[Rfam]
RNA sequence: CGAUUUCUUAUAAUACUUCAGGGCCUUACUAAAGACCCAGUGUACAAUUUUUGCAGCCCUGUCUUCUGAGGCAGGGG
Numbered sequence: 001c002g003a004u005u006u007c008u009u010a011u012a013a014u015a016c017u018u019c020a021g022g023g024c025c026u027u028a029c030u031a032a033a034g035a036c037c038c039a040g041u042g043u044a045c046a047a048u049u050u051u052u053g054c055a056g057c058c059c060u061g062u063c064u065u066c067u068g069a070g071g072c073a074g075g076g077g
Base pairs, nucleotide, nucleotide: 021038022037023036025034026033027032057076058075059074060073061072062071063070064069
RNA: SmY spliceosomal RNA
Organism: Caenorhabditis elegans